[Rfam]
RNA sequence: CCGACCGACAAAUGUCGAAGCAUUACCCCUGCCGAGGUAGUUCGUGGGGUAGAGAGACUGAUUGAGCGGACCGCCCUCGAGAGAGGUCGGCCGUUCUGUCAAACUCCGAACCUACGAACGCUGGCGACGCGGGGAGUUCGGUGCGCGGGGUAAGCCUGUGUACCGUGAGGGAGACAACCCAGAGUCGGGUUAAGGUCCCCAAGUGUGGACUAAGUGCGAUCGAAGGUGGUCUCAAGCCCUAGACAGCCGGGAGGUGAGCUUAGAAGCAGCUACCCUCCAAGAAAAGCGUAACAGCUUACCGGCCGAGGUUUGAGGCGCCCAAAAUGAUCGGGGCUCAAGUCCACCACCGAUACCUGACCAUGCUCGUUACAGAGCAAUUGUGUAGGUCGGCGUUCUGAUCGGGUGGAAGCACGGCCGAGAGUUCGUGUGGACCGAUUUGAAACGAAAAU
Numbered sequence: 001c002c003g004a005c006c007g008a009c010a011a012a013u014g015u016c017g018a019a020g021c022a023u024u025a026c027c028c029c030u031g032c033c034g035a036g037g038u039a040g041u042u043c044g045u046g047g048g049g050u051a052g053a054g055a056g057a058c059u060g061a062u063u064g065a066g067c068g069g070a071c072c073g074c075c076c077u078c079g080a081g082a083g084a085g086g087u088c089g090g091c092c093g094u095u096c097u098g099u100c101a102a103a104c105u106c107c108g109a110a111c112c113u114a115c116g117a118a119c120g121c122u123g124g125c126g127a128c129g130c131g132g133g134g135a136g137u138u139c140g141g142u143g144c145g146c147g148g149g150g151u152a153a154g155c156c157u158g159u160g161u162a163c164c165g166u167g168a169g170g171g172a173g174a175c176a177a178c179c180c181a182g183a184g185u186c187g188g189g190u191u192a193a194g195g196u197c198c199c200c201a202a203g204u205g206u207g208g209a210c211u212a213a214g215u216g217c218g219a220u221c222g223a224a225g226g227u228g229g230u231c232u233c234a235a236g237c238c239c240u241a242g243a244c245a246g247c248c249g250g251g252a253g254g255u256g257a258g259c260u261u262a263g264a265a266g267c268a269g270c271u272a273c274c275c276u277c278c279a280a281g282a283a284a285a286g287c288g289u290a291a292c293a294g295c296u297u298a299c300c301g302g303c304c305g306a307g308g309u310u311u312g313a314g315g316c317g318c319c320c321a322a323a324a325u326g327a328u329c330g331g332g333g334c335u336c337a338a339g340u341c342c343a344c345c346a347c348c349g350a351u352a353c354c355u356g357a358c359c360a361u362g363c364u365c366g367u368u369a370c371a372g373a374g375c376a377a378u379u380g381u382g383u384a385g386g387u388c389g390g391c392g393u394u395c396u397g398a399u400c401g402g403g404u405g406g407a408a409g410c411a412c413g414g415c416c417g418a419g420a421g422u423u424c425g426u427g428u429g430g431a432c433c434g435a436u437u438u439g440a441a442a443c444g445a446a447a448a449u
Base pairs, nucleotide, nucleotide: 001390002389003388004387005386006385011024012023013022014021015020026136027134028133029132030131031130032129036122037121038120040119041118042117043116044115045114046113047112052107053105054104060100061099062098064096065095066094067093068092069091073088075086076085077084078083140164141163142162143161144160145159146158147157148156169180170179171178184358185357186356187355188354189353190352194348195347196346203345205344206343207342208341209340210339225319226318227317229316230315231314232313233312234311235310236309237308238307246303247302248301249300250299252276253275254274257271258270259269277281282297286295287294359380360379361376362375363374364373365372391444393441394440395439397437398436399435400434401433402432409428410427411426412425413424414423416421
Rfam assigns this 449-nucleotide part of an RNA from Halosimplex carlsbadense to the family "Archaeal large subunit ribosomal RNA". The sequence is in the family's curated seed alignment. The source organism's lineage runs through Archaea, Methanobacteriati, Methanobacteriota, Halobacteria and Halosimplex.